[Rfam]
RNA sequence: UCGUCAGGAGGUUAAUCCUUACCUGUCCCUCCUUUCGGAGGGCAGUAGAAAAUGAUGAUUGGAGCUUGCAUGAUCUGCUGAUUAGCAUUUCCAUGCAAUCAGGACCUGACAACAUCCUGGUUGCUCCUAUCUGAU
Dot-bracket structure: ......................(((.((((((....)))))))))..........................((..((.(....).))..))...(((((((((............)))))))))...........
A member of the RNA family "U8 small nucleolar RNA", 135 nucleotides long. The literature on the family includes a 2001 paper in Gene by Peculis et al., "The U8 snoRNA gene family: identification and characterization of distinct, functional U8 genes in Xenopus". Gene Ontology terms of the family: nucleolus and RNA processing.